[Rfam]
RNA: Glycine riboswitch aptamer
Organism: Massilia forsythiae
RNA sequence: CAGUCUUGACCGGGAGAGCGCAGCACAGGCUGCCGCCGAAGGGGCAUCACCCGAAAACUCUCAGGCAACCGGACCGGUCAGGGGAC
Numbered sequence: 001c002a003g004u005c006u007u008g009a010c011c012g013g014g015a016g017a018g019c020g021c022a023g024c025a026c027a028g029g030c031u032g033c034c035g036c037c038g039a040a041g042g043g044g045c046a047u048c049a050c051c052c053g054a055a056a057a058c059u060c061u062c063a064g065g066c067a068a069c070c071g072g073a074c075c076g077g078u079c080a081g082g083g084g085a086c
Base pairs, nucleotide, nucleotide: 006081007080008079009078010077011076012075013074020033021032022031023030035066036065037064038062039061042060043059044058048053